RNA sequence: CCACCCGUCAUUAGGGAGUAGCCGCCCUCCGCAUGUGAGAGGGACGUGUGUCAACAGACUUGCCGGUUCCGGCAUGGCACACGUGGUCCGAGACUUGGCGAGACUUUUGACCGUAAUGCUCUGCAUGGCCGGGACGCAUUGCGGUCACUCGUUUUCGCGUCCCGGCCAUGGAGAAUU
Dot-bracket structure: .........................(((...........))).((((((((((.......(((((....)))))))))))))))(.(((................................................................................))..).).
Numbered sequence: 001c002c003a004c005c006c007g008u009c010a011u012u013a014g015g016g017a018g019u020a021g022c023c024g025c026c027c028u029c030c031g032c033a034u035g036u037g038a039g040a041g042g043g044a045c046g047u048g049u050g051u052c053a054a055c056a057g058a059c060u061u062g063c064c065g066g067u068u069c070c071g072g073c074a075u076g077g078c079a080c081a082c083g084u085g086g087u088c089c090g091a092g093a094c095u096u097g098g099c100g101a102g103a104c105u106u107u108u109g110a111c112c113g114u115a116a117u118g119c120u121c122u123g124c125a126u127g128g129c130c131g132g133g134a135c136g137c138a139u140u141g142c143g144g145u146c147a148c149u150c151g152u153u154u155u156c157g158c159g160u161c162c163c164g165g166c167c168a169u170g171g172a173g174a175a176u177u
Stems, first nucleotide, its partner, number of pairs: 026042003044084010061074005085176001087174001088171002
Manganese Mn2+ riboswitch aptamer (yybP-ykoY): a 177-nucleotide sequence from Aquitalea sp. FJL05. Its family is annotated with manganese ion binding in the Gene Ontology. NCBI's taxonomy places the organism under Bacteria, Pseudomonadota, Betaproteobacteria, Neisseriales, Aquitalea.